[Rfam]
RNA sequence: GUGUUUUUCAUAGUAUUAGAUUUAAGGUUAACAAGGUAGGGACUCAGCGGAGUCCCAUUUUUUUAUAU
Numbered sequence: 001g002u003g004u005u006u007u008u009c010a011u012a013g014u015a016u017u018a019g020a021u022u023u024a025a026g027g028u029u030a031a032c033a034a035g036g037u038a039g040g041g042a043c044u045c046a047g048c049g050g051a052g053u054c055c056c057a058u059u060u061u062u063u064u065a066u067a068u
Base pairs, nucleotide, nucleotide: 039056040055041054042053043052044051045050
RNA: Bacteroidetes FopS (family of paralogous sRNAs)
Organism: Prevotella sp. KH2C16